The record is a 157-nucleotide sequence from Paenibacillus stellifer, which matches "c-di-AMP riboswitch aptamer (ydaO/yuaA leader)" in Rfam. Taxonomically the source falls in Paenibacillus (Bacteria, Bacillota, Caryophanales, Paenibacillaceae).
[Rfam]
RNA sequence: GUUGAAUAUGCGCUGAAUUUUCCCAUAACGGAAAAACGGGGGAACCAACAUGACCGCCAGCCGGUCAAGGGGUGAAUCGGAACCGAAAUGUUCGGUCCGUAGGGCUUCCACAGUCCGAAUCCGCCAGCUAACCUCGUAAGCCACAGUGGAUAAUGAU
Numbered sequence: 001g002u003u004g005a006a007u008a009u010g011c012g013c014u015g016a017a018u019u020u021u022c023c024c025a026u027a028a029c030g031g032a033a034a035a036a037c038g039g040g041g042g043a044a045c046c047a048a049c050a051u052g053a054c055c056g057c058c059a060g061c062c063g064g065u066c067a068a069g070g071g072g073u074g075a076a077u078c079g080g081a082a083c084c085g086a087a088a089u090g091u092u093c094g095g096u097c098c099g100u101a102g103g104g105c106u107u108c109c110a111c112a113g114u115c116c117g118a119a120u121c122c123g124c125c126a127g128c129u130a131a132c133c134u135c136g137u138a139a140g141c142c143a144c145a146g147u148g149g150a151u152a153a154u155g156a157u
Base pairs, nucleotide, nucleotide: 012141013140014139018035019034020033021032022031023030036137037136038135039134040133041132046069070122071121072120078099079098080097081096102116103115104114105113